Notes: Shown here is a 69-nucleotide sequence from Ziziphus jujuba, a member of the family "Plastid-clpP 5UTR RNA". Lineage of the source: Eukaryota > Spermatophyta > Gunneridae > Ziziphus > Ziziphus jujuba. Plastid clpP is a non-coding RNA (ncRNA) recognised in plastids. It was found in the prime untranslated region (5UTR) of a protease complex subunit (clpP) in plastids, suggesting a posible cis-regulatory function.

[Rfam]
RNA sequence: AAUUUUGUUUGUAGGAAUGAAAGGAAGUAGAUCUAUUCUACACCCUAUAAGUACCAAUACGCAAUGGUA
Numbered sequence: 001a002a003u004u005u006u007g008u009u010u011g012u013a014g015g016a017a018u019g020a021a022a023g024g025a026a027g028u029a030g031a032u033c034u035a036u037u038c039u040a041c042a043c044c045c046u047a048u049a050a051g052u053a054c055c056a057a058u059a060c061g062c063a064a065u066g067g068u069a
Stems, first nucleotide, its partner, number of pairs: 003022002006019005044067002051060003